The family of this 49-nucleotide RNA sequence is "chrB-b RNA". It is annotated as a cis-regulatory element. The family's consensus secondary structure is taken from published work. Rfam's curators put it in the seed alignment.
[Rfam]
RNA sequence: UGGGGAAAGUGCAGACUCCCCAUUAGACGGCUCUCCGUCCAAGCUCUGC
Number, nucleotide and partner (000 for none) at each position: 001u022002g021003g020004g019005g018006a017007a000008a000009g000010u000011g049012c048013a047014g046015a045016c000017u006018c005019c004020c003021c002022a001023u000024u000025a000026g039027a038028c037029g036030g035031c000032u000033c000034u000035c030036c029037g028038u027039c026040c000041a000042a000043g000044c000045u015046c014047u013048g012049c011